[Rfam]
RNA sequence: GAUCCGGGACGGCCCGGAUCGCCGGGGAAAGCGCCAUAGCGGGGACGGCCCCU
Numbered sequence: 001g002a003u004c005c006g007g008g009a010c011g012g013c014c015c016g017g018a019u020c021g022c023c024g025g026g027g028a029a030a031g032c033g034c035c036a037u038a039g040c041g042g043g044g045a046c047g048g049c050c051c052c053u
Stems, first nucleotide, its partner, number of pairs: 001020008041052004